Shown here is an 86-nucleotide sequence from Peribacillus deserti, a member of the family "Glycine riboswitch aptamer". Rfam links the family to the GO term glycine biosynthetic process. Taxonomically the source falls in Peribacillus (Bacteria, Bacillota, Caryophanales, Bacillaceae).
Nucleotides: 086
Stems, first nucleotide, its partner, number of pairs: 001086005012034007036074003040069001043068003050060001
Number, partner (000 for none) and nucleotide at each position: 001086c002085u003084c004083u005082g006000g007000a008000g009000a010000g011000u012034g013033u014032u015031u016030g017029a018028g019000c020000a021000c022000a023000c024000c025000a026000c027000g028018c029017u030016u031015a032014a033013a034012c035000c036074a037073c038072c039000a040069a041000a042000g043068g044067g045066g046000a047000a048000a049000g050060c051000c052000u053000u054000u055000a056000a057000c058000a059000g060050g061000g062000u063000a064000a065000a066045c067044u068043u069040u070000c071000a072038g073037g074036u075000a076000a077000c078000a079000g080000g081000a082005c083004a084003g085002g086001g